[Rfam]
RNA sequence: CUGAACCUUCGGGGCAGGGUGAAAUUCCCUACCGGCGGUGACGGCGCCUACGGCGUCGAAGCCCGCGACUCCCGCUUCCCCCUGUGGAAGUGGGACUGACUUGGUGUAAGUCCAAGGCCGACGGUAUAGUCCGGAUGAGAGAAGGUUUAA
Numbered sequence: 001c002u003g004a005a006c007c008u009u010c011g012g013g014g015c016a017g018g019g020u021g022a023a024a025u026u027c028c029c030u031a032c033c034g035g036c037g038g039u040g041a042c043g044g045c046g047c048c049u050a051c052g053g054c055g056u057c058g059a060a061g062c063c064c065g066c067g068a069c070u071c072c073c074g075c076u077u078c079c080c081c082c083u084g085u086g087g088a089a090g091u092g093g094g095a096c097u098g099a100c101u102u103g104g105u106g107u108a109a110g111u112c113c114a115a116g117g118c119c120g121a122c123g124g125u126a127u128a129g130u131c132c133g134g135a136u137g138a139g140a141g142a143a144g145g146u147u148u149a150a
Base pairs, nucleotide, nucleotide: 003148004147005146006145007144008143009142010141017029018028019027031130032129033120034119035066036065037064038063061118062117070095071094072093073092074091100116101115102114103113104112122133123132124131

This 150-nucleotide RNA from Paenibacillaceae bacterium GAS479 belongs to the Rfam family "FMN riboswitch aptamer (RFN element)". The organism belongs to Paenibacillaceae, within Bacteria.